Record summary
Shown here is a 207-nucleotide RNA sequence from Natronogracilivirga saccharolytica, a member of the family "Lysine riboswitch aptamer". The match comes from Rfam's covariance-model search (70 bits). Pairs were carried over by alignment from the consensus structure, which is taken from published work.

[Rfam]
RNA sequence: GUUACCUGAAGAGGUGCAACCGUCAGGCAACCAUCGCGAGGUGCCGGACUCCCGUUGCGGGAGCUGCCAGUGACCGAUGGCCAGGGGGCGUUGUUGCCGAAGCUUUUCAAGUCCGCCGGUGAUUUGAAAAGUUGGGUCCAGUGGUUGAAUCCCUGGGACUGUCACGCUGACUCAUUUGCGAGCAGGUCGUGGAGUGCUUUAGGAGUG
Numbered sequence: 001g002u003u004a005c006c007u008g009a010a011g012a013g014g015u016g017c018a019a020c021c022g023u024c025a026g027g028c029a030a031c032c033a034u035c036g037c038g039a040g041g042u043g044c045c046g047g048a049c050u051c052c053c054g055u056u057g058c059g060g061g062a063g064c065u066g067c068c069a070g071u072g073a074c075c076g077a078u079g080g081c082c083a084g085g086g087g088g089c090g091u092u093g094u095u096g097c098c099g100a101a102g103c104u105u106u107u108c109a110a111g112u113c114c115g116c117c118g119g120u121g122a123u124u125u126g127a128a129a130a131g132u133u134g135g136g137u138c139c140a141g142u143g144g145u146u147g148a149a150u151c152c153c154u155g156g157g158a159c160u161g162u163c164a165c166g167c168u169g170a171c172u173c174a175u176u177u178g179c180g181a182g183c184a185g186g187u188c189g190u191g192g193a194g195u196g197c198u199u200u201a202g203g204a205g206u207g
Base pairs, nucleotide, nucleotide: 006202007201008200009199010198011197016097017096018095019094020093021090022089024088031080032079033078034077035076036075101133102132103131104130105129106128107127108126109125110124111123112122134160135159137157138156139155140154141153143151144150162192163191164190165189166188168186
The source organism's lineage runs through Bacteria, Balneolia, Balneolales, Cyclonatronaceae and Natronogracilivirga.